A member of the RNA family "Manganese Mn2+ riboswitch aptamer (yybP-ykoY)" from Pseudidiomarina planktonica, 184 nucleotides long.
The base pairs follow the family's consensus structure.
For this family Rfam cites "Mn(2+)-sensing mechanisms of yybP-ykoY orphan riboswitches" (Price et al., Mol Cell, 2015).
The match comes from Rfam's covariance-model search (50 bits).
[Rfam]
RNA sequence: CUAGCCGGGUCUUGGGGGAGUAGUCGCUUAAUUACCCAAUUAAGACACACAUCAACAUAGUUGAACUUAACUAAGAACGGUUCAUGGUGUGUGUAUCCGAAGUUCGGACUGACGAGACUUAAGGCUUAGCGCAUCUGCUGUAGGGCAGGGGUGGGCUAUGCCUUAGUGUUCACAGUCUGCCCUC
Numbered sequence: 001c002u003a004g005c006c007g008g009g010u011c012u013u014g015g016g017g018g019a020g021u022a023g024u025c026g027c028u029u030a031a032u033u034a035c036c037c038a039a040u041u042a043a044g045a046c047a048c049a050c051a052u053c054a055a056c057a058u059a060g061u062u063g064a065a066c067u068u069a070a071c072u073a074a075g076a077a078c079g080g081u082u083c084a085u086g087g088u089g090u091g092u093g094u095a096u097c098c099g100a101a102g103u104u105c106g107g108a109c110u111g112a113c114g115a116g117a118c119u120u121a122a123g124g125c126u127u128a129g130c131g132c133a134u135c136u137g138c139u140g141u142a143g144g145g146c147a148g149g150g151g152u153g154g155g156c157u158a159u160g161c162c163u164u165a166g167u168g169u170u171c172a173c174a175g176u177c178u179g180c181c182c183u184c
Stems, first nucleotide, its partner, number of pairs: 028043003045094010062084005101183001